[Rfam]
MIR5269 microRNA precursor family: an 80-nucleotide RNA sequence from Medicago truncatula. Rfam 15.1 lists 389 matches to the family in 6 species. It scores 80 bits against the family's covariance model.
RNA sequence: UUGGGUGAAAUCAAUGUAAGACCUACACUUUGGAAAUGGAACCCAUAUAAAGUAGAGGGAUAUACAUUGAUUUUACCCAA
Number, nucleotide and partner (000 for none) at each position: 001u080002u079003g078004g077005g076006u075007g074008a073009a072010a071011u070012c069013a068014a067015u066016g065017u064018a063019a000020g000021a000022c000023c058024u057025a000026c000027a053028c052029u051030u050031u049032g048033g000034a000035a000036a000037u000038g000039g000040a000041a000042c000043c000044c000045a000046u000047a000048u032049a031050a030051a029052g028053u027054a000055g000056a000057g024058g023059g000060a000061u000062a000063u018064a017065c016066a015067u014068u013069g012070a011071u010072u009073u008074u007075a006076c005077c004078c003079a002080a001